[Rfam]
Notes: The record is a 103-nucleotide RNA from Miscanthus lutarioriparius, which matches "Small nucleolar RNA Z118/Z121/Z120" in Rfam. NCBI's taxonomy places the organism under Eukaryota, Euphyllophyta, Liliopsida, Saccharinae, Miscanthus. It scores 75 bits against the family's covariance model. Rfam links the family to the GO terms nucleolus and RNA processing. Pairs were carried over by alignment from the consensus structure, which was predicted with PFOLD. Rfam classes the family as a C/D-box small nucleolar RNA.

RNA sequence: UUUUUGCCAUGAUGACUCCUAUUAGGACGGUAUCUUAAGGGGAUGACUUUUAAGUGCACCCCUUCUGAUUAUACCAAAACUGAAUAUGGUUUCUGAGCAAAUC
Numbered sequence: 001u002u003u004u005u006g007c008c009a010u011g012a013u014g015a016c017u018c019c020u021a022u023u024a025g026g027a028c029g030g031u032a033u034c035u036u037a038a039g040g041g042g043a044u045g046a047c048u049u050u051u052a053a054g055u056g057c058a059c060c061c062c063u064u065c066u067g068a069u070u071a072u073a074c075c076a077a078a079a080c081u082g083a084a085u086a087u088g089g090u091u092u093c094u095g096a097g098c099a100a101a102u103c
Base pairs, nucleotide, nucleotide: 003101004100005099006098007097038064039063040062041061042060